[Rfam]
RNA: Y RNA-like
RNA sequence: AUGGCGAAUGCCUGACGGACUACAUCGACUUGUAAUCGCCAGGUCGCGGGUUCGAAUCCCGCCGGGUCUUCGAUGCGUUCGGACCCGUAGCUCAGUGGAAGAGCGGGACGUGUCCGUCAAACAACUGGUCGCCAUGAC
Dot-bracket structure: .((((((.....(((((((...................((.....(((((..[....)))))((((((.............))))))..((((....]..)))).)).....))))))).........))))))....